Description: Shown here is a 219-nucleotide sequence from Pontiella sulfatireligans, a member of the family "Group II catalytic intron D1-D4-6". The match comes from Rfam's covariance-model search (104 bits). NCBI's taxonomy places the organism under Bacteria, Pseudomonadati, Kiritimatiellia, Kiritimatiellales, Pontiella. About the family: Group II introns are found in rRNA, tRNA and mRNA of organelles in fungi, plants and protists, and also in mRNA in bacteria.
RNA sequence: CCACUCCCGCCCGGCAAAGGUUGGCUGCCAGCCGGAAGCGAACAUUGCGUAGUCGUUGCGUAAGCGCGGCACGAAGCGUAUGGAGCGAGCACUUAAGCUGCGUGAAUGAAUCUCGAAAUUUUGUAGAUUGUCAGGGUCUUCCUGUUCGUGUUAGGGAGGACAACAUCGCACGUAACGCCAUGGCUAUGGAGCGUGCGGCCAGACCGGGAUCUACGAGCG
Numbered sequence: 001c002c003a004c005u006c007c008c009g010c011c012c013g014g015c016a017a018a019g020g021u022u023g024g025c026u027g028c029c030a031g032c033c034g035g036a037a038g039c040g041a042a043c044a045u046u047g048c049g050u051a052g053u054c055g056u057u058g059c060g061u062a063a064g065c066g067c068g069g070c071a072c073g074a075a076g077c078g079u080a081u082g083g084a085g086c087g088a089g090c091a092c093u094u095a096a097g098c099u100g101c102g103u104g105a106a107u108g109a110a111u112c113u114c115g116a117a118a119u120u121u122u123g124u125a126g127a128u129u130g131u132c133a134g135g136g137u138c139u140u141c142c143u144g145u146u147c148g149u150g151u152u153a154g155g156g157a158g159g160a161c162a163a164c165a166u167c168g169c170a171c172g173u174a175a176c177g178c179c180a181u182g183g184c185u186a187u188g189g190a191g192c193g194u195g196c197g198g199c200c201a202g203a204c205c206g207g208g209a210u211c212u213a214c215g216a217g218c219g
Stems, first nucleotide, its partner, number of pairs: 011035004019029003022186004038086002043082003046078002048073003053069003057066003107213001108211001110210006130204003134200002136161003141155004166198008176188001